RNA sequence: UGUCUGUCAGGAGAUGGCAUUCCUCCCGCUCGACGAACCGCCGCAACGGCUGAUGAUGCCUAUGCAACC
Numbered sequence: 001u002g003u004c005u006g007u008c009a010g011g012a013g014a015u016g017g018c019a020u021u022c023c024u025c026c027c028g029c030u031c032g033a034c035g036a037a038c039c040g041c042c043g044c045a046a047c048g049g050c051u052g053a054u055g056a057u058g059c060c061u062a063u064g065c066a067a068c069c
Stems, first nucleotide, its partner, number of pairs: 010026004016060006040050003
RNA: Fluoride riboswitch aptamer (crcB RNA motif)
Organism: Paraburkholderia humisilvae